The record is a 441-nucleotide part of an RNA from Idiomarina loihiensis, which matches "Bacterial large subunit ribosomal RNA" in Rfam.
The family has 102 seed sequences and 51,934 matches in Rfam 15.1.

RNA sequence: CUCCCCGAAAUCUAUUUAGGUAGAGCCUCGGACGAAUACCAUUGGGGGUAGAGCACUGUUUGGGCUAGGGGGUCAUCCCGACUUACCAACCCCAUGCAAACUCCGAAUACCAAUGAGUACUAUCCGGGAGACACACGGCGGGUGCUAACGUCCGUCGUGAAGAGGGAAACAACCCAGACCGCCAGCUAAGGUCCCGAAGUUAUGGCUCAGUGGGAAACGAUGUGGGAAGGCAGAGACAGCUAGGAGGUUGGCUUAGAAGCAGCCAUCCUUUAAAGAAAGCGUAAUAGCUCACUAGUCGAGUCGGCCUGCGCGGAAGAUGUAACGGGGCUAAGCCAUACACCGAAGCUGCGGCUGCAUACUUAGGUAUGCGGGGUAGGGGAGCGUUCUGUAAGUGGGCGAAGGUGGUUCGAGAGGACUGCUGGACAUAUCAGAAGUGCGAAU
Numbered sequence: 001c002u003c004c005c006c007g008a009a010a011u012c013u014a015u016u017u018a019g020g021u022a023g024a025g026c027c028u029c030g031g032a033c034g035a036a037u038a039c040c041a042u043u044g045g046g047g048g049u050a051g052a053g054c055a056c057u058g059u060u061u062g063g064g065c066u067a068g069g070g071g072g073u074c075a076u077c078c079c080g081a082c083u084u085a086c087c088a089a090c091c092c093c094a095u096g097c098a099a100a101c102u103c104c105g106a107a108u109a110c111c112a113a114u115g116a117g118u119a120c121u122a123u124c125c126g127g128g129a130g131a132c133a134c135a136c137g138g139c140g141g142g143u144g145c146u147a148a149c150g151u152c153c154g155u156c157g158u159g160a161a162g163a164g165g166g167a168a169a170c171a172a173c174c175c176a177g178a179c180c181g182c183c184a185g186c187u188a189a190g191g192u193c194c195c196g197a198a199g200u201u202a203u204g205g206c207u208c209a210g211u212g213g214g215a216a217a218c219g220a221u222g223u224g225g226g227a228a229g230g231c232a233g234a235g236a237c238a239g240c241u242a243g244g245a246g247g248u249u250g251g252c253u254u255a256g257a258a259g260c261a262g263c264c265a266u267c268c269u270u271u272a273a274a275g276a277a278a279g280c281g282u283a284a285u286a287g288c289u290c291a292c293u294a295g296u297c298g299a300g301u302c303g304g305c306c307u308g309c310g311c312g313g314a315a316g317a318u319g320u321a322a323c324g325g326g327g328c329u330a331a332g333c334c335a336u337a338c339a340c341c342g343a344a345g346c347u348g349c350g351g352c353u354g355c356a357u358a359c360u361u362a363g364g365u366a367u368g369c370g371g372g373g374u375a376g377g378g379g380a381g382c383g384u385u386c387u388g389u390a391a392g393u394g395g396g397c398g399a400a401g402g403u404g405g406u407u408c409g410a411g412a413g414g415a416c417u418g419c420u421g422g423a424c425a426u427a428u429c430a431g432a433a434g435u436g437c438g439a440a441u
Base pairs, nucleotide, nucleotide: 001381002380003379004378005377006376011024012023013022014021015020026130027128028127029126030125031124032123036121040115041114042113043112044111045110051104052102053101057098058097059096061094062093063092064091068087069086070084071083072082073081074080134159135158136157137156138155139154140153141152142151143150164175165174166173179351180350181349182348184347185346186345190341191340192339199338201337202336203335204334205333206332218312219311222309223308224307225306226305229302230301231300239296240295241294242293243292245269246268247267250264251263252262270274275290279288280287352371353370354369355368356367357366358365359364382436384433385432386431387430388429392426393425394424401420402419403418404417405416406415407414408413